[Rfam]
RNA sequence: UUGCAAAUGAGUUUGUGAGUCUCUAUACUUCUCUGACCUUGCAUGGAGUCUAUGUCUGGAUCUUCUGCAUUCACCGUUGUGCUUAAACAACACAUAAAAGAAUGCGAAUAUUCCGAUGGUCCAGACAUAGCCUUCAUGCAUGUUGGAGUAUUAUGGAAACCCGUGAACUACUUGUAA
Dot-bracket structure: .(((((...(((((.((.((.((((((...(((((.(.(.((((((((.(((((((((((.(((.(.(((((...........................)))))..).......)).).))))))))))).))))))))).).)))))...)))))).)).)).)))))..))))).
Annotation: The record is a 177-nucleotide RNA from Ceratodon purpureus, which matches "MIR538 microRNA precursor family" in Rfam. Rfam links the family to the GO terms miRNA-mediated post-transcriptional gene silencing and RISC complex. The source organism's lineage runs through Eukaryota, Streptophyta, Streptophytina, Bryophytina and Ceratodon. Rfam 15.1 lists 5 matches to the family in 2 species. A search with the family's covariance model found it, with a score of 122 bits.